MIR2617 microRNA precursor family: an 82-nucleotide RNA sequence from Medicago truncatula. NCBI's taxonomy places the organism under Eukaryota, Embryophyta, Papilionoideae, Hologalegina, Medicago.
RNA sequence: AUGUGGCAUGCCCCGUUUGGUGCUUAACUCUGAUUAAUAUUUGUUAUUUAAUUGUUUUUGGGUAACGGGGUGUUACAAGAAG
Numbered sequence: 001a002u003g004u005g006g007c008a009u010g011c012c013c014c015g016u017u018u019g020g021u022g023c024u025u026a027a028c029u030c031u032g033a034u035u036a037a038u039a040u041u042u043g044u045u046a047u048u049u050a051a052u053u054g055u056u057u058u059u060g061g062g063u064a065a066c067g068g069g070g071u072g073u074u075a076c077a078a079g080a081a082g
Base pairs, nucleotide, nucleotide: 002077003076004075005074006073007072008071009070012069013068014067015066016065017064